[Rfam]
RNA sequence: AACUAACAACAAAUGUUACUUCGUAUAAAUCCGGGGAUUGGCCCGGAAGUCUCUACAGGAUCACCGUAAAUGAUCUGGCUACGAAGGGAAACACCACUACG
Numbered sequence: 001a002a003c004u005a006a007c008a009a010c011a012a013a014u015g016u017u018a019c020u021u022c023g024u025a026u027a028a029a030u031c032c033g034g035g036g037a038u039u040g041g042c043c044c045g046g047a048a049g050u051c052u053c054u055a056c057a058g059g060a061u062c063a064c065c066g067u068a069a070a071u072g073a074u075c076u077g078g079c080u081a082c083g084a085a086g087g088g089a090a091a092c093a094c095c096a097c098u099a100c101g
Stems, first nucleotide, its partner, number of pairs: 019086007030047006058076006